[Rfam]
RNA sequence: GCCUCGCGGCUGAAAGGCCGACGGCUAUGCCGGAGUGAGAAGUCAGCAGAGGCCGUAGUAGCGCGAGCCGGGGCCGAUGAGGCCAGAAGGCGAGCACGAAGGGC
Numbered sequence: 001g002c003c004u005c006g007c008g009g010c011u012g013a014a015a016g017g018c019c020g021a022c023g024g025c026u027a028u029g030c031c032g033g034a035g036u037g038a039g040a041a042g043u044c045a046g047c048a049g050a051g052g053c054c055g056u057a058g059u060a061g062c063g064c065g066a067g068c069c070g071g072g073g074c075c076g077a078u079g080a081g082g083c084c085a086g087a088a089g090g091c092g093a094g095c096a097c098g099a100a101g102g103g104c
Base pairs, nucleotide, nucleotide: 001025002024004023007020008019009018010017011016043050044049052104053103054102061097063095073091074090075089
RNA: Group II catalytic intron D1-D4-1